Small nucleolar RNA SNORA1: a 135-nucleotide RNA sequence from Felis catus. The family's RNA type in Rfam is H/ACA-box small nucleolar RNA. The family's consensus secondary structure was predicted with PFOLD. Lineage of the source: Eukaryota > Chordata > Mammalia > Boreoeutheria > Felis. The family has 29 seed sequences and 1,282 matches in Rfam 15.1. Gene Ontology terms of the family: RNA processing and nucleolus. From the family's description: ACA1 is a member of the H/ACA class of snoRNA that guide the sites of modification of uridines to pseudouridines.
RNA sequence: AGCCUCAUUCUAGAUGGAAAUAAGUACUACCAUUCAUGGUGUCCAGAAAUUGUUAACGUGGCUACAAUAAGACACAGGUUAUGCUUCCAUUGCAGCAAGUUGAUUGCAGUGGUGACAUUGAGAACUGUAACAUUU
Numbered sequence: 001a002g003c004c005u006c007a008u009u010c011u012a013g014a015u016g017g018a019a020a021u022a023a024g025u026a027c028u029a030c031c032a033u034u035c036a037u038g039g040u041g042u043c044c045a046g047a048a049a050u051u052g053u054u055a056a057c058g059u060g061g062c063u064a065c066a067a068u069a070a071g072a073c074a075c076a077g078g079u080u081a082u083g084c085u086u087c088c089a090u091u092g093c094a095g096c097a098a099g100u101u102g103a104u105u106g107c108a109g110u111g112g113u114g115a116c117a118u119u120g121a122g123a124a125c126u127g128u129a130a131c132a133u134u135u
Base pairs, nucleotide, nucleotide: 002062003061004060006058008056021045024042025041026040027039074128075127076126077125088114089113090112091111092110093109